[Rfam]
RNA sequence: CUUCCGCUCUCCCCGCACAGGAGGGCGGACCGGGGGAACCGCGCUCUCUGCCCUGACCGCGCGGACUUCCCCCAGGGCCACCGGGCACCGCACACCCGGCGGCUCGCGGUCCCGCGUCCUCAGGGGCGUGCGGGCACGCCUUCGGGCUGCGGUGCCGGAGGGGUCGAGGGUCCCCUCGCGGCGC
Dot-bracket structure: ..((((.(((((.......))))).))))..(((((..(((.((((........))..)).)))...)))))..(((((....((..........))...)))))...(((.((.................................)).)))....((((((........)))))).......
The record is a 184-nucleotide sequence from Streptomyces sp. TverLS-915, which matches "Streptomyces sRNA scr5239" in Rfam.
It scores 72 bits against the family's covariance model.
The base pairs follow the family's consensus structure, which is taken from published work.
Rfam links the family to the GO terms mRNA binding and negative regulation of translation.
By type it is a small RNA.